[Rfam]
RNA: FMN riboswitch aptamer (RFN element)
RNA sequence: CGCCGUUCUCAGGGCGGGGUGGAAAUCCCCACCGGCGGUAAGCAGCGAAAUCUGUAAGCCCGCGAGCGCCUUCUCCGUUGUUCAUCAAAGGGGAAGGGUCCAGCAGACCGAGUGAGAGUCUCGGGCCGACGGUCAUAGUCCGGAUGAAAGAGAACCAAC
Dot-bracket structure: ....((((((......(((.......))).[[((((((...................[[))))..((...................................))...(((((.......)))))]])).(((.....]]))).......))))))....